Rfam assigns this 99-nucleotide sequence from Pediococcus argentinicus to the family "Purine riboswitch aptamer".
The base pairs follow the family's consensus structure, which is taken from published work.
The match comes from Rfam's covariance-model search (64 bits).
Rfam describes the family as follows. Riboswitches are metabolite binding domains within certain messenger RNAs that serve as precision sensors for their corresponding targets.
Nucleotides: 099
Stems, first nucleotide, its partner, number of pairs: 020083006029047006057075006
Number, partner (000 for none) and nucleotide at each position: 001000a002000c003000a004000a005000u006000c007000g008000a009000a010000u011000a012000a013000u014000u015000u016000u017000u018000c019000g020083c021082c022081u023080a024079u025078a026000u027000a028000a029047u030046g031045u032044c033043a034042a035000a036000a037000u038000g039000u040000g041000g042034u043033u044032g045031a046030c047029g048000a049000g050000u051000a052000u053000c054000u055000a056000c057075c058074c059073a060072a061071c062070g063000c064000c065000g066000u067000a068000a069000a070062c071061g072060u073059u074058g075057g076000a077000c078025u079024a080023u081022a082021g083020g084000a085000u086000u087000c088000u089000u090000u091000u092000a093000a094000u095000c096000a097000u098000u099000g